[Rfam]
RNA: Bacterial RNase P class A
Organism: Microbacterium sp. CH12i
Nucleotides: 381
Base pairs, nucleotide, nucleotide: 001377002376003375004374005373006372007371008370009369010368011366012322013321014320015319016318017317018316020039021038024035025034026033027032044364045363046362048361049360050359051358052357053228054227055226056225060259061258062257063256065224066223067222068221069220070084071083072082073081074080085099086097087096088095089094100219101218105217106216107213108212109211122158123157124154125153126152127151128150129149130148132146133145134144135143136142166184167183168182169181170180171179186208187206188205189204190203191202192201193200194199232279233278234277235276241270242269243268244267245266246265253261254260286305287304288303289302290301291300292299293298
Number, partner (000 for none) and nucleotide at each position: 001377u002376g003375g004374g005373u006372c007371g008370g009369c010368u011366g012322g013321a014320c015319g016318g017317u018316c019000g020039c021038g022000u023000g024035g025034c026033g027032g028000g029000c030000a031000a032027c033026c034025g035024c036000a037000c038021c039020g040000a041000g042000g043000a044364a045363c046362g047000u048361c049360c050359g051358g052357g053228c054227u055226c056225c057000a058000c059000a060259g061258g062257g063256c064000a065224g066223g067222a068221u069220g070084g071083u072082g073081g074080g075000u076000a077000a078000c079000a080074c081073c082072c083071a084070c085099c086097c087096g088095g089094a090000g091000u092000a093000a094089u095088c096087c097086g098000c099085g100219a101218g102000a103000u104000a105217g106216u107213g108212c109211c110000a111000c112000a113000g114000a115000g116000a117000g118000u119000a120000g121000a122158c123157c124154g125153c126152c127151g128150c129149g130148u131000u132146c133145u134144c135143c136142g137000c138000u139000u140000g141000u142136c143135g144134g145133g146132g147000u148130g149129c150128g151127c152126g153125g154124u155000a156000a157123g158122g159000g160000u161000g162000a163000a164000a165000g166184g167183g168182u169181g170180g171179u172000g173000u174000a175000a176000g177000a178000g179171a180170c181169c182168a183167c184166c185000g186208g187206g188205g189204g190203u191202c192201a193200u194199g195000g196000u197000g198000a199194c200193a201192u202191g203190a204189c205188c206187c207000g208186c209000c210000a211109g212108g213107u214000a215000a216106a217105c218101c219100u220069c221068g222067u223066c224065c225056g226055g227054a228053g229000c230000a231000a232279g233278g234277u235276c236000a237000g238000a239000c240000a241270g242269a243268g244267g245266g246265u247000g248000u249000u250000g251000a252000c253261g254260c255000g256063g257062c258061u259060c260254g261253c262000u263000g264000a265246g266245u267244c268243c269242u270241c271000g272000g273000g274000u275000a276235g277234a278233c279232c280000g281000c282000u283000g284000g285000a286305g287304c288303g289302g290301c291300a292299c293298g294000g295000c296000a297000a298293c299292g300291u301290g302289u303288c304287g305286c306000c307000g308000a309000g310000a311000g312000a313000g314000a315000u316018g317017g318016c319015c320014g321013u322012c323000g324000a325000a326000g327000g328000g329000a330000u331000a332000c333000c334000u335000c336000g337000a338000g339000a340000g341000a342000g343000g344000c345000c346000c347000c348000g349000g350000a351000a352000c353000a354000g355000a356000a357052c358051c359050c360049g361048g362046c363045g364044u365000a366011c367000a368010g369009g370008c371007c372006g373005g374004c375003c376002c377001a378000u379000u380000c381000g